[Rfam]
RNA sequence: GGCGUGGAGCCUGCGGCUUAAUUUGACUCAACACGGGCAAUCUCACCAGGCCAGCACUCUAGCAUGAUUGACAGAUUGAGAGCUCUUUCUCGAUUCAGUGGAUGGUGGUGCAUGGCCGUUCUUAGUUGGUGGAGUGAUCUGUCUGGUUAAUUCCGAUAACGAACGAGACUCUCCCCUGCUAACUAGUCGGUUGGAUCUUGAUCUGCGAGUGUGUGCCCUGUGAGGUGCUUGGUUGUUGCUGCGUGCGUGUUUGUGUCCCCAGCAAUGGGUGAUCCUGCGCGUGCGUUGGUGGCUUCCAUUGCUUCGCUGGUAACGCAUACUCCAAGUCCGCCGCUUGUCUUAGAGAAUAUUCUUCUUAGAGGGAUCCACGGCUCUGAAGCCGUCAGAGACUGAGAGCAAUAACAGGUCUGUGAUGCCCUUAGAUGCUCUGGGCCGCACGCGCGCUACAAUGCCGGGCACAGCAGGUGUUUCUUCCUGCUCCGAGAGGAGCGGGCAACCCUCUGAAAGCCCCAUACUUGACUUGCGUCGCCUUCACGGGCGCGCAGGAGCGGCGUGCUUGGGCCUGGGGCUUGCAAUUAUUCCCCACAAACGAGGAAUGCC
Numbered sequence: 001g002g003c004g005u006g007g008a009g010c011c012u013g014c015g016g017c018u019u020a021a022u023u024u025g026a027c028u029c030a031a032c033a034c035g036g037g038c039a040a041u042c043u044c045a046c047c048a049g050g051c052c053a054g055c056a057c058u059c060u061a062g063c064a065u066g067a068u069u070g071a072c073a074g075a076u077u078g079a080g081a082g083c084u085c086u087u088u089c090u091c092g093a094u095u096c097a098g099u100g101g102a103u104g105g106u107g108g109u110g111c112a113u114g115g116c117c118g119u120u121c122u123u124a125g126u127u128g129g130u131g132g133a134g135u136g137a138u139c140u141g142u143c144u145g146g147u148u149a150a151u152u153c154c155g156a157u158a159a160c161g162a163a164c165g166a167g168a169c170u171c172u173c174c175c176c177u178g179c180u181a182a183c184u185a186g187u188c189g190g191u192u193g194g195a196u197c198u199u200g201a202u203c204u205g206c207g208a209g210u211g212u213g214u215g216c217c218c219u220g221u222g223a224g225g226u227g228c229u230u231g232g233u234u235g236u237u238g239c240u241g242c243g244u245g246c247g248u249g250u251u252u253g254u255g256u257c258c259c260c261a262g263c264a265a266u267g268g269g270u271g272a273u274c275c276u277g278c279g280c281g282u283g284c285g286u287u288g289g290u291g292g293c294u295u296c297c298a299u300u301g302c303u304u305c306g307c308u309g310g311u312a313a314c315g316c317a318u319a320c321u322c323c324a325a326g327u328c329c330g331c332c333g334c335u336u337g338u339c340u341u342a343g344a345g346a347a348u349a350u351u352c353u354u355c356u357u358a359g360a361g362g363g364a365u366c367c368a369c370g371g372c373u374c375u376g377a378a379g380c381c382g383u384c385a386g387a388g389a390c391u392g393a394g395a396g397c398a399a400u401a402a403c404a405g406g407u408c409u410g411u412g413a414u415g416c417c418c419u420u421a422g423a424u425g426c427u428c429u430g431g432g433c434c435g436c437a438c439g440c441g442c443g444c445u446a447c448a449a450u451g452c453c454g455g456g457c458a459c460a461g462c463a464g465g466u467g468u469u470u471c472u473u474c475c476u477g478c479u480c481c482g483a484g485a486g487g488a489g490c491g492g493g494c495a496a497c498c499c500u501c502u503g504a505a506a507g508c509c510c511c512a513u514a515c516u517u518g519a520c521u522u523g524c525g526u527c528g529c530c531u532u533c534a535c536g537g538g539c540g541c542g543c544a545g546g547a548g549c550g551g552c553g554u555g556c557u558u559g560g561g562c563c564u565g566g567g568g569c570u571u572g573c574a575a576u577u578a579u580u581c582c583c584c585a586c587a588a589a590c591g592a593g594g595a596a597u598g599c600c
Stems, first nucleotide, its partner, number of pairs: 001600005006447001008445003012441004016436002022037004046431005052425001057100001059098002070089002073086003104419002107417004113413001114411001115407003118403003125164003129160002131140003144155003170395004175362003179359004185353002365386001368383005451552004457546001463500003474493002478489004559590001564585005
The family of this 600-nucleotide part of an RNA from Gonodactylaceus falcatus is "Eukaryotic small subunit ribosomal RNA". Pairs were carried over by alignment from the consensus structure, which is taken from published work. Its Rfam clan is "SSU clan".